[Rfam]
RNA sequence: GCACUGGUUUAGCUCUGUGGUUACUUCCUACAAAAAAUCUCUUCUGAUUUCCUGUACCAUCUCUACCCGGGAUCCAACCACGGGCGCUGUCCAGUGU
Numbered sequence: 001g002c003a004c005u006g007g008u009u010u011a012g013c014u015c016u017g018u019g020g021u022u023a024c025u026u027c028c029u030a031c032a033a034a035a036a037a038u039c040u041c042u043u044c045u046g047a048u049u050u051c052c053u054g055u056a057c058c059a060u061c062u063c064u065a066c067c068c069g070g071g072a073u074c075c076a077a078c079c080a081c082g083g084g085c086g087c088u089g090u091c092c093a094g095u096g097u
Stems, first nucleotide, its partner, number of pairs: 002096006012085004017081004026072004